[Rfam]
RNA sequence: CCAUUGCCGGAGGCACGCCUCCUGGAUUUAUCCAGCUGGUUUACCGUCGGCGCCGGCGGGGGCGACAUUUAUCUCUGCGUGUUGCGUGCCCGACCCCGCUUAUUACUCCUUAGCCUACUCCUACUUUCCGUGGGACUAGGCCUUUUCCUACUCCCCGCUCGAUAGAGCGGCACACAUUA
Numbered sequence: 001c002c003a004u005u006g007c008c009g010g011a012g013g014c015a016c017g018c019c020u021c022c023u024g025g026a027u028u029u030a031u032c033c034a035g036c037u038g039g040u041u042u043a044c045c046g047u048c049g050g051c052g053c054c055g056g057c058g059g060g061g062g063c064g065a066c067a068u069u070u071a072u073c074u075c076u077g078c079g080u081g082u083u084g085c086g087u088g089c090c091c092g093a094c095c096c097c098g099c100u101u102a103u104u105a106c107u108c109c110u111u112a113g114c115c116u117a118c119u120c121c122u123a124c125u126u127u128c129c130g131u132g133g134g135a136c137u138a139g140g141c142c143u144u145u146u147c148c149u150a151c152u153c154c155c156c157g158c159u160c161g162a163u164a165g166a167g168c169g170g171c172a173c174a175c176a177u178u179a
Base pairs, nucleotide, nucleotide: 006051007050008049009048010047012045013044017040018039019038022035023034024033025032026031055100056099057098058097059096060095061094062085063084064083065082066081067080113141114140115139116138117137119135120134121133122132123131124130155170156169157168159166

A member of the RNA family "Hepatitis C virus (HCV) cis-acting replication element (CRE)" from Orthohepacivirus hominis, 179 nucleotides long.
It is annotated as a cis-regulatory element.
The sequence is in the family's curated seed alignment.
The literature on the family includes a 2016 paper in Mol Cell by Pirakitikulr et al., "The Coding Region of the HCV Genome Contains a Network of Regulatory RNA Structures".